[Rfam]
RNA: TPP riboswitch aptamer (THI element)
Nucleotides: 101
Base pairs, nucleotide, nucleotide: 006089007088008087010085011050012049013048014047017035018034019033020032021031022030023029056081057080058079059078062075063074064073065072
Number, partner (000 for none) and nucleotide at each position: 001000g002000g003000u004000c005000g006089a007088a008087c009000c010085u011050a012049g013048g014047g015000g016000u017035g018034c019033u020032c021031g022030a023029g024000u025000u026000u027000a028000u029023c030022u031021u032020g033019g034018g035017c036000u037000g038000a039000g040000a041000u042000c043000a044000u045000u046000a047014c048013c049012c050011u051000c052000c053000g054000a055000a056081c057080c058079u059078g060000a061000u062075c063074a064073g065072g066000u067000u068000a069000a070000u071000a072065c073064c074063u075062g076000c077000g078059c079058a080057g081056g082000g083000a084000a085010g086000c087008g088007u089006u090000c091000g092000a093000c094000c095000a096000u097000u098000u099000u100000u101000u